Shown here is a 77-nucleotide sequence from Candidatus Propionivibrio aalborgensis, a member of the family "Pseudomonas sRNA P9". By type it is a non-coding RNA gene. This small RNA (sRNA) was computationally identified in the genome of the opportunistic pathogen Pseudomonas aeruginosa and its expression verified by northern blot analysis. P9 appears to be conserved in several Pseudomonas species in addition to Bordetella spp. In both Pseudomonas and Bordetella spp P9 appears to be located upstream of a predicted threonine dehydratase gene. P9 has a predicted Rho independent terminator at the 3' end but the function of P9 is unknown. This sRNA also appears to be present in the Betaproteobacteria (Burkholderia and Ralstonia species). The match comes from Rfam's covariance-model search (64 bits).

[Rfam]
RNA sequence: GUCAUUAUUACCACCAUUCCCAAAAUGGUGGGUUAGCGCGCUUAAUUGUUCACUGCACCCGCCAAGAGGCGGGUUUU
Numbered sequence: 001g002u003c004a005u006u007a008u009u010a011c012c013a014c015c016a017u018u019c020c021c022a023a024a025a026u027g028g029u030g031g032g033u034u035a036g037c038g039c040g041c042u043u044a045a046u047u048g049u050u051c052a053c054u055g056c057a058c059c060c061g062c063c064a065a066g067a068g069g070c071g072g073g074u075u076u077u
Stems, first nucleotide, its partner, number of pairs: 011031007055076001057074007